[Rfam]
RNA sequence: CUUCACGAGCUGCGGCCAUGUUUGGGCUCCGACCCGGCCGCACACCAACCCCAUGCUUCACGGGUGGUUCGGAUGACGAAGUGGCCUGGCGCAACACCGCACCGGGCAAGAGCAACGA
Numbered sequence: 001c002u003u004c005a006c007g008a009g010c011u012g013c014g015g016c017c018a019u020g021u022u023u024g025g026g027c028u029c030c031g032a033c034c035c036g037g038c039c040g041c042a043c044a045c046c047a048a049c050c051c052c053a054u055g056c057u058u059c060a061c062g063g064g065u066g067g068u069u070c071g072g073a074u075g076a077c078g079a080a081g082u083g084g085c086c087u088g089g090c091g092c093a094a095c096a097c098c099g100c101a102c103c104g105g106g107c108a109a110g111a112g113c114a115a116c117g118a
Stems, first nucleotide, its partner, number of pairs: 001081004009043001011042006025034002044068003049064003054060001084107006091100002